[Rfam]
RNA sequence: UGUUGAAGGAUGAUGAUAUCAGACGGAUUCCCAUUGAUAUAUUUAUGUAUGAUAUAACAACCAGCUACUUCUGACAAUA
Numbered sequence: 001u002g003u004u005g006a007a008g009g010a011u012g013a014u015g016a017u018a019u020c021a022g023a024c025g026g027a028u029u030c031c032c033a034u035u036g037a038u039a040u041a042u043u044u045a046u047g048u049a050u051g052a053u054a055u056a057a058c059a060a061c062c063a064g065c066u067a068c069u070u071c072u073g074a075c076a077a078u079a
Base pairs, nucleotide, nucleotide: 001079002078003077004076005075

Shown here is a 79-nucleotide sequence from Abrus precatorius, a member of the family "Small nucleolar RNA R12". On this family, see Chen et al., Nucleic Acids Res 2003: "The high diversity of snoRNAs in plants: identification and comparative study of 120 snoRNA genes from Oryza sativa". Rfam links the family to the GO terms RNA processing and nucleolus. About the family: snoR12 is a C/D box small nucleolar RNA, which acts as a methylation guide for 25S ribosomal RNA in plants. snoR12 has been alternatively named snoZ44 in Arabidopsis and snoZ131 in rice. The match comes from Rfam's covariance-model search (56 bits).